The record is a 349-nucleotide RNA sequence from Trabulsiella odontotermitis, which matches "isrL Hfq binding RNA" in Rfam.
Pairs were carried over by alignment from the consensus structure, which was predicted with RNAalifold.
It scores 108 bits against the family's covariance model.
The organism belongs to Trabulsiella, within Bacteria.
RNA sequence: UUUCGCAACGUUGACCUGUUCGGUCUGCGCCCACAGUUUGCCAAUCGCUUCGUUGAUGCUGGGGUGCCAGUUAACGGCGCGGAUCACCGCGUCAUUUAGCGUCAGCGUUCCUGGUGGCGCUGCGUCCAGUUUUAGCGUCGGCGAGCCAUCCAGCGCGGGAAGCUCUUGCCCGGCCAGCCCUUGCGUCGUAAUACGCUGCGGUUCGUCAUCGGCCCAGGUCGCCUGCGUCACGCACAGACAGCUCGCCAGCCAGCAGGUAACAGGCAGUAAUUUUCCCAUAAAUUGUCCCUAAGAAAGCUGAUUACGUUAUUUUCAGCGCCCCGGACGUACGUGCGCCCGGGGCUGCUGU
Dot-bracket structure: ..(....((..((...(((.............)))(((.((..(.....).)).))).(.(((((((..(((.(.((((((......))))))..).)))..(.(.((.((....)).))..))....))......((...((.(.(((((......)))......)).)))))..))))).)))..))..(.((...(((...(.............)...))).....)).)......((..(((........))).....))...)................................................(((((((.(((....))).)))))))......